Rfam assigns this 231-nucleotide part of an RNA from Coconut lethal yellowing phytoplasma to the family "Bacterial large subunit ribosomal RNA". Lineage of the source: Bacteria > Mycoplasmatota > Acholeplasmatales > Candidatus Phytoplasma > 16SrIV (Coconut lethal yellows group). Pairs were carried over by alignment from the consensus structure, which is taken from published work. Rfam's curators put it in the seed alignment.
[Rfam]
RNA sequence: GAGUUAUGAUAUAGAGCAAGGUUAAGUUUUGAGGAACGUAGCCAUAGCGAAAGCGAGUUUUAACAGAGCGUUUAGUUCUAUGUCAUAGACCCGAAACUGAAGUGAGCUAGCCAUGAGCAGGUUGAAGUUUAGGUAAAACUAAAUGGAGGACCGAACCAGGACACGUUGAAAAGUGUUUGGAUGACUUGUGGCUAGGGGUGAAAUUCCAAUCGAACUCAGAGAUAGCUGGUU
Numbered sequence: 001g002a003g004u005u006a007u008g009a010u011a012u013a014g015a016g017c018a019a020g021g022u023u024a025a026g027u028u029u030u031g032a033g034g035a036a037c038g039u040a041g042c043c044a045u046a047g048c049g050a051a052a053g054c055g056a057g058u059u060u061u062a063a064c065a066g067a068g069c070g071u072u073u074a075g076u077u078c079u080a081u082g083u084c085a086u087a088g089a090c091c092c093g094a095a096a097c098u099g100a101a102g103u104g105a106g107c108u109a110g111c112c113a114u115g116a117g118c119a120g121g122u123u124g125a126a127g128u129u130u131a132g133g134u135a136a137a138a139c140u141a142a143a144u145g146g147a148g149g150a151c152c153g154a155a156c157c158a159g160g161a162c163a164c165g166u167u168g169a170a171a172a173g174u175g176u177u178u179g180g181a182u183g184a185c186u187u188g189u190g191g192c193u194a195g196g197g198g199u200g201a202a203a204u205u206c207c208a209a210u211c212g213a214a215c216u217c218a219g220a221g222a223u224a225g226c227u228g229g230u231u
Base pairs, nucleotide, nucleotide: 005087006086007085008084009083010082011081012080013079014078015077016076017075020043021042022041023040026037027036028035047054048053057069058068059067060066090229091228093226097219098218099217101216102215103214107195108194109193110192111191112190113189114188115187116186117185118183120152121151122150123149127144128143129142130141131140132139156180157179158178160177161176162175163174164173197207198206